RNA sequence: AUCAUAAACAGGCCGAAGCUUCCACAAGAGGCAUGGGGGACCCAAUCUUUGGGGUGAAGCCUAUUCAUGGCCGGGCGCUUGCUCUUUGACCCGAACCCGUCAGCUAACCUCGUAGGCCUUAAAAAAGAGAGGA
Numbered sequence: 001a002u003c004a005u006a007a008a009c010a011g012g013c014c015g016a017a018g019c020u021u022c023c024a025c026a027a028g029a030g031g032c033a034u035g036g037g038g039g040a041c042c043c044a045a046u047c048u049u050u051g052g053g054g055u056g057a058a059g060c061c062u063a064u065u066c067a068u069g070g071c072c073g074g075g076c077g078c079u080u081g082c083u084c085u086u087u088g089a090c091c092c093g094a095a096c097c098c099g100u101c102a103g104c105u106a107a108c109c110u111c112g113u114a115g116g117c118c119u120u121a122a123a124a125a126a127g128a129g130a131g132g133a
Base pairs, nucleotide, nucleotide: 011118012117013116014115018032019031020030021029022028033113034112035111036110037109038108043051044050052098053097054096060070061069073092074091075090
A member of the RNA family "c-di-AMP riboswitch aptamer (ydaO/yuaA leader)" from Paenibacillus sp. FSL H7-0331, 133 nucleotides long. About the family: This family represents a conserved RNA structure found upstream of the ydaO and yuaA genes in Bacillus subtilis and related genes in other bacteria. The ydaO/yuaA element is thought to act as a genetic 'off' switch for the ydaO and yuaA genes in its native state. It is believed that the element may be triggered during osmotic shock leading to activation of ydaO, a predicted amino acid transporter gene, and members of the yuaA-yubG operon which code for KtrA and KtrB K+ transporters.